The family of this 122-nucleotide RNA from Burkholderia dolosa is "Burkholderia RNA 11".
Pairs were carried over by alignment from the consensus structure, which was predicted with RNAfold.
Rfam describes the family as follows. Co-purified with Hfq, expression confirmed by Northern blot. Predicted target marZ. Overlaps coding sequence.
Its family is annotated with protein binding in the Gene Ontology.
A search with the family's covariance model found it, with a score of 60 bits.

RNA sequence: GCAACCUCGUGCUCGCCCGGCAGAACCGCACGGUGUUCCUGAGCCUGCUCGGCAUCUCGUGGCUGUGGUUCGUCGGCGCGACGUUCCUCACGUCGUUCUUCAACUUCGCGAAGGACGUGCUG
Numbered sequence: 001g002c003a004a005c006c007u008c009g010u011g012c013u014c015g016c017c018c019g020g021c022a023g024a025a026c027c028g029c030a031c032g033g034u035g036u037u038c039c040u041g042a043g044c045c046u047g048c049u050c051g052g053c054a055u056c057u058c059g060u061g062g063c064u065g066u067g068g069u070u071c072g073u074c075g076g077c078g079c080g081a082c083g084u085u086c087c088u089c090a091c092g093u094c095g096u097u098c099u100u101c102a103a104c105u106u107c108g109c110g111a112a113g114g115a116c117g118u119g120c121u122g
Stems, first nucleotide, its partner, number of pairs: 011048002015044002018041003022037002025034003051121005057115002060112001067099002071095002074092002078088001080087001